[Rfam]
Rfam assigns this 45-nucleotide sequence from Hoylesella marshii to the family "Acido-Lenti-1 RNA". A search with the family's covariance model found it, with a score of 38 bits. Rfam classes the family as a small RNA.

RNA sequence: CUCGGUGCUGCGCGCUGGGCUAAUAUGUUACGCGCUUGCAGCGCU
Numbered sequence: 001c002u003c004g005g006u007g008c009u010g011c012g013c014g015c016u017g018g019g020c021u022a023a024u025a026u027g028u029u030a031c032g033c034g035c036u037u038g039c040a041g042c043g044c045u
Base pairs, nucleotide, nucleotide: 001019002018003017004016005015006014007013008012032044033043034042035041036040